[Rfam]
RNA sequence: GAAAUCUUUAAUGCAGUCCAGAGAGACUGGCAAGAUUUGUAGUAUAUAUUUACAUAGUAUUAAAAUAUAACUAUGUAGUUUUUGUAAAGAUAACUAUACUUCUUGCCAGCUCGGCAAGAAGUUUUUUAU
Numbered sequence: 001g002a003a004a005u006c007u008u009u010a011a012u013g014c015a016g017u018c019c020a021g022a023g024a025g026a027c028u029g030g031c032a033a034g035a036u037u038u039g040u041a042g043u044a045u046a047u048a049u050u051u052a053c054a055u056a057g058u059a060u061u062a063a064a065a066u067a068u069a070a071c072u073a074u075g076u077a078g079u080u081u082u083u084g085u086a087a088a089g090a091u092a093a094c095u096a097u098a099c100u101u102c103u104u105g106c107c108a109g110c111u112c113g114g115c116a117a118g119a120a121g122u123u124u125u126u127u128a129u
Stems, first nucleotide, its partner, number of pairs: 003037006014029005048080001050078009061067001096124001098122010
A member of the RNA family "PyrR binding site" from Clostridium thermopalmarium, 129 nucleotides long. Rfam classes the family as a cis-regulatory element.